Rfam assigns this 122-nucleotide RNA from Agrobacterium fabrum to the family "Alphaproteobacterial ar14". It is annotated as a small RNA. Rfam links the family to the GO term biological process involved in symbiotic interaction. The family has 118 seed sequences and 784 matches in Rfam 15.1. Rfam's curators write: Smr14C2 was renamed NfeR1 (Nodule Formation Efficiency RNA) highly expressed in salt stress and during the symbiotic interaction on legume roots.

RNA sequence: AAUCAUCGAAGCGACGCACUCCUCCUCCCAGUGUCGCUCGAUGUGGAUCGGUGGUACUCCUCCUCCCAAUCGCCGAUCAAGUUUGAAGCCUGCCGCACCUCCUCCCGCGGCAGGCUUUUUCC
Numbered sequence: 001a002a003u004c005a006u007c008g009a010a011g012c013g014a015c016g017c018a019c020u021c022c023u024c025c026u027c028c029c030a031g032u033g034u035c036g037c038u039c040g041a042u043g044u045g046g047a048u049c050g051g052u053g054g055u056a057c058u059c060c061u062c063c064u065c066c067c068a069a070u071c072g073c074c075g076a077u078c079a080a081g082u083u084u085g086a087a088g089c090c091u092g093c094c095g096c097a098c099c100u101c102c103u104c105c106c107g108c109g110g111c112a113g114g115c116u117u118u119u120u121c122c
Stems, first nucleotide, its partner, number of pairs: 007040003011037007046078010086117011